[Rfam]
RNA sequence: UUUCCCUCUACCCAUUGCGGUGGUCAUCCAAGGUAAGAGGUGCCAAAGGCACCCGCCACCGCCUUCCGCAAGGAAGAGGGUAGAGGAGGAGGU
Numbered sequence: 001u002u003u004c005c006c007u008c009u010a011c012c013c014a015u016u017g018c019g020g021u022g023g024u025c026a027u028c029c030a031a032g033g034u035a036a037g038a039g040g041u042g043c044c045a046a047a048g049g050c051a052c053c054c055g056c057c058a059c060c061g062c063c064u065u066c067c068g069c070a071a072g073g074a075a076g077a078g079g080g081u082a083g084a085g086g087a088g089g090a091g092g093u
Stems, first nucleotide, its partner, number of pairs: 005086009017062008037054001039053005063076005
RNA: DUF1874 RNA